[Rfam]
RNA sequence: GACCUUGCGUCUACAGCCCGAGCGUCAAGCGAAAGGCUGAUGGCUGGUGGCUUUUGCCACCGGCCU
Numbered sequence: 001g002a003c004c005u006u007g008c009g010u011c012u013a014c015a016g017c018c019c020g021a022g023c024g025u026c027a028a029g030c031g032a033a034a035g036g037c038u039g040a041u042g043g044c045u046g047g048u049g050g051c052u053u054u055u056g057c058c059a060c061c062g063g064c065c066u
Base pairs, nucleotide, nucleotide: 014039015038016037017036018035022030023029042065043064044063045062046061047060048059049058050057051056
Dot-bracket structure: .............(((((...((.....))....)))))..((((((((((....)))))))))).